A member of the RNA family "Alphaproteobacteria transfer-messenger RNA" from Falsirhodobacter algicola, 354 nucleotides long.
RNA sequence: GGGCUUGCCGCCCCGAGGGGGACCGACUAUAUCGGGACUGUUCGGGCUUGCUCGGACUAUGGCGAUAAACGCACCUGUAAUAAGCGGAUCGGACCCGGGGGCGGUACCCGGCGGCUCCACCAACACUCCCUCGUUGGGGGCGGAGGGGGCCGAAAUAGGAUCGACGAACGUCUAAAGAGGCCAGCUUUCGCUCGGUGAGGUACCACCGUUAUCGGUCCGAAUUGUACAGUUGCCAACGACAACCGUGCUCCGAUGGCUCUGGCUGCGUAAGCAGUUAGAACAUCGAAACCUAAGCCCUUGCGCCUAGCCGCGUAAGGCGGGGCCCGCAGGAGCCUGGCAACAGAAUCCUGCACC
Dot-bracket structure: .......................................(((((((....)))))))...(((((.....((.(((........((..(((...(((((.......)))))(((((((...........................)))))))............))).)).......)))...))..)))))((((..[[.[[[)))).....]]]]].....................................................................................................[[[[..((((((]]]]..........))))))...
Numbered sequence: 001g002g003g004c005u006u007g008c009c010g011c012c013c014c015g016a017g018g019g020g021g022a023c024c025g026a027c028u029a030u031a032u033c034g035g036g037a038c039u040g041u042u043c044g045g046g047c048u049u050g051c052u053c054g055g056a057c058u059a060u061g062g063c064g065a066u067a068a069a070c071g072c073a074c075c076u077g078u079a080a081u082a083a084g085c086g087g088a089u090c091g092g093a094c095c096c097g098g099g100g101g102c103g104g105u106a107c108c109c110g111g112c113g114g115c116u117c118c119a120c121c122a123a124c125a126c127u128c129c130c131u132c133g134u135u136g137g138g139g140g141c142g143g144a145g146g147g148g149g150c151c152g153a154a155a156u157a158g159g160a161u162c163g164a165c166g167a168a169c170g171u172c173u174a175a176a177g178a179g180g181c182c183a184g185c186u187u188u189c190g191c192u193c194g195g196u197g198a199g200g201u202a203c204c205a206c207c208g209u210u211a212u213c214g215g216u217c218c219g220a221a222u223u224g225u226a227c228a229g230u231u232g233c234c235a236a237c238g239a240c241a242a243c244c245g246u247g248c249u250c251c252g253a254u255g256g257c258u259c260u261g262g263c264u265g266c267g268u269a270a271g272c273a274g275u276u277a278g279a280a281c282a283u284c285g286a287a288a289c290c291u292a293a294g295c296c297c298u299u300g301c302g303c304c305u306a307g308c309c310g311c312g313u314a315a316g317g318c319g320g321g322g323c324c325c326g327c328a329g330g331a332g333c334c335u336g337g338c339a340a341c342a343g344a345a346u347c348c349u350g351c352a353c354c
Stems, first nucleotide, its partner, number of pairs: 040057007061192005071185002074180003085170002089167003095111005112152007193208004199218002202216003320335004326351006
Clan: tRNA clan.